This 78-nucleotide RNA from Mesocricetus auratus belongs to the Rfam family "Small nucleolar RNA SNORD109A". Gene Ontology terms of the family: RNA processing and nucleolus. The source organism's lineage runs through Eukaryota, Craniata, Boreoeutheria, Euarchontoglires and Mesocricetus. It is annotated as a C/D-box small nucleolar RNA.
[Rfam]
RNA sequence: AGAUCAACGAUGUGUACAGUAUCUGAGGAUGGUGAUUGACUCAUGACUAUGCCAAUCUGACUUCCAGAUAGGAGGUCC
Numbered sequence: 001a002g003a004u005c006a007a008c009g010a011u012g013u014g015u016a017c018a019g020u021a022u023c024u025g026a027g028g029a030u031g032g033u034g035a036u037u038g039a040c041u042c043a044u045g046a047c048u049a050u051g052c053c054a055a056u057c058u059g060a061c062u063u064c065c066a067g068a069u070a071g072g073a074g075g076u077c078c
Base pairs, nucleotide, nucleotide: 002077003076004075005074